The family of this 68-nucleotide RNA from Anolis carolinensis is "mir-302 microRNA precursor family". A search with the family's covariance model found it, with a score of 56 bits. Rfam 15.1 lists 2,090 matches to the family in 516 species. Lineage of the source: Eukaryota > Teleostomi > Sauropsida > Lepidosauria > Anolis. Its family is annotated with miRNA-mediated post-transcriptional gene silencing and RISC complex in the Gene Ontology. A reference for the family is Suh et al. (2004), "Human embryonic stem cells express a unique set of microRNAs", Dev Biol. The base pairs follow the family's consensus structure, which was predicted with RNAalifold.
RNA sequence: GAAUGGGUUUAAAUUGGAGGUGAUUGCUUUAUCAUCAUAAAGUAAUCACCUCCAAUUUUAACCCAUUC
Numbered sequence: 001g002a003a004u005g006g007g008u009u010u011a012a013a014u015u016g017g018a019g020g021u022g023a024u025u026g027c028u029u030u031a032u033c034a035u036c037a038u039a040a041a042g043u044a045a046u047c048a049c050c051u052c053c054a055a056u057u058u059u060a061a062c063c064c065a066u067u068c
Stems, first nucleotide, its partner, number of pairs: 001068003005064004011058018